RNase MRP: a 230-nucleotide RNA from Asparagus officinalis. Pairs were carried over by alignment from the consensus structure, which is taken from published work. It scores 79 bits against the family's covariance model. RNase MRP is an enzymatically active ribonucleoprotein with two distinct roles in eukaryotes. In mitochondria it plays a direct role in the initiation of mitochondrial DNA replication. In the nucleus it is involved in precursor rRNA processing, where it cleaves the internal transcribed spacer 1 between 18S and 5.8S rRNAs. Despite distinct functions, RNase MRP has been shown to be evolutionarily related to RNase P. Like eukaryotic RNase P, RNase MRP is not catalytically active without associated protein subunits. The source organism's lineage runs through Eukaryota, Streptophyta, Euphyllophyta, Asparagales and Asparagus. By type it is a ribozyme.

RNA sequence: AGUGCUUAGGACGAAGUGAGCGGGUGCCUCUCUAACCCGGGAAAGUCCCUGGGCCUAUCCGCAGAGAUGCGGACCCCGUAAGGGGUGUAACCUUCGAUGGCUAGCGGGCUGAGACGAGUGCGGAGCCUUGCUUACCCGGUUUAAGGUUAUUAAUAUUGGCCGUCCUUAAUACAGUUACUCACUUGAUCCAAUAAUUGGAUUAACAGAACGGGGAUUACGAUCCUAAGCGU
Numbered sequence: 001a002g003u004g005c006u007u008a009g010g011a012c013g014a015a016g017u018g019a020g021c022g023g024g025u026g027c028c029u030c031u032c033u034a035a036c037c038c039g040g041g042a043a044a045g046u047c048c049c050u051g052g053g054c055c056u057a058u059c060c061g062c063a064g065a066g067a068u069g070c071g072g073a074c075c076c077c078g079u080a081a082g083g084g085g086u087g088u089a090a091c092c093u094u095c096g097a098u099g100g101c102u103a104g105c106g107g108g109c110u111g112a113g114a115c116g117a118g119u120g121c122g123g124a125g126c127c128u129u130g131c132u133u134a135c136c137c138g139g140u141u142u143a144a145g146g147u148u149a150u151u152a153a154u155a156u157u158g159g160c161c162g163u164c165c166u167u168a169a170u171a172c173a174g175u176u177a178c179u180c181a182c183u184u185g186a187u188c189c190a191a192u193a194a195u196u197g198g199a200u201u202a203a204c205a206g207a208a209c210g211g212g213g214a215u216u217a218c219g220a221u222c223c224u225a226a227g228c229g230u
Stems, first nucleotide, its partner, number of pairs: 002230010014184006021039004043216002047213004060071004073086005089148003093144002096141003103132003106128004116121001186200006